[Rfam]
RNA sequence: AGAGUCAUACAGGAAAGGAGUAGCGACCAUCCUGACCCCGAGUCAUGCGAGGGCAGUCGCGAGGCUGCACUUGAAGCGUUGGACAGGGGCAUAUGUGGGCUGGGUAAUGAGCUCCGAAAACGGCAAUCCAGGGAGCCGACGGCGUCAGCCAGUACGGAAGGCAACAGAGCGGCACGCGAUCGCGCGAGUGUGCCGUGCCCUGCGGAGUCGAAGACCC
Numbered sequence: 001a002g003a004g005u006c007a008u009a010c011a012g013g014a015a016a017g018g019a020g021u022a023g024c025g026a027c028c029a030u031c032c033u034g035a036c037c038c039c040g041a042g043u044c045a046u047g048c049g050a051g052g053g054c055a056g057u058c059g060c061g062a063g064g065c066u067g068c069a070c071u072u073g074a075a076g077c078g079u080u081g082g083a084c085a086g087g088g089g090c091a092u093a094u095g096u097g098g099g100c101u102g103g104g105u106a107a108u109g110a111g112c113u114c115c116g117a118a119a120a121c122g123g124c125a126a127u128c129c130a131g132g133g134a135g136c137c138g139a140c141g142g143c144g145u146c147a148g149c150c151a152g153u154a155c156g157g158a159a160g161g162c163a164a165c166a167g168a169g170c171g172g173c174a175c176g177c178g179a180u181c182g183c184g185c186g187a188g189u190g191u192g193c194c195g196u197g198c199c200c201u202g203c204g205g206a207g208u209c210g211a212a213g214a215c216c217c
Base pairs, nucleotide, nucleotide: 010034011033012032013031014030017028018027021187023185024184036089037088038087039086042084043083044081045080046078047077048073049072050071051070053068054067055066056065057064058063108211109209111208112207113206114205115204116203129202130201131200132199133198135162136161137160140156141155169196170195171194172193173192174191175190176189177188
The family of this 217-nucleotide sequence from Candidatus Solibacter usitatus is "Group II catalytic intron D1-D4-6". Rfam describes the family as follows. Group II introns are found in rRNA, tRNA and mRNA of organelles in fungi, plants and protists, and also in mRNA in bacteria. The family has 174 seed sequences and 1,617 matches in Rfam 15.1.